[Rfam]
RNA sequence: CCUUGUGUUCCAUUACAAGUAGCCUAUGGAUACGUGCAUUUCUGGCAACGGGAUUGUGCGAAGCUAUCCGGACAAUAUAGCCCGUAAAGGGAUGCUGUGAAGAAUACCUGUUGCGCACCAACGUCAGAUGCGGGGGAGU
Numbered sequence: 001c002c003u004u005g006u007g008u009u010c011c012a013u014u015a016c017a018a019g020u021a022g023c024c025u026a027u028g029g030a031u032a033c034g035u036g037c038a039u040u041u042c043u044g045g046c047a048a049c050g051g052g053a054u055u056g057u058g059c060g061a062a063g064c065u066a067u068c069c070g071g072a073c074a075a076u077a078u079a080g081c082c083c084g085u086a087a088a089g090g091g092a093u094g095c096u097g098u099g100a101a102g103a104a105u106a107c108c109u110g111u112u113g114c115g116c117a118c119c120a121a122c123g124u125c126a127g128a129u130g131c132g133g134g135g136g137a138g139u
Base pairs, nucleotide, nucleotide: 002019003018004017005016006015007014028069029068030067031066032065033060034059035058036057037056038055040053041052042051043050044049088109089108090107095102096101114132115131116130117129119127
This 139-nucleotide RNA from Lunatimonas lonarensis belongs to the Rfam family "Group II catalytic intron D1-D4-7".
Lineage of the source: Bacteria > Bacteroidota > Cytophagales > Cyclobacteriaceae > Lunatimonas.
The pairing is the family consensus, mapped onto this sequence.
A search with the family's covariance model found it, with a score of 98 bits.
The literature on the family includes a 2001 paper in Trends Genet by Bonen and Vogel, "The ins and outs of group II introns".
Rfam's curators write: Group II introns are found in rRNA, tRNA and mRNA of organelles in fungi, plants and protists, and also in mRNA in bacteria.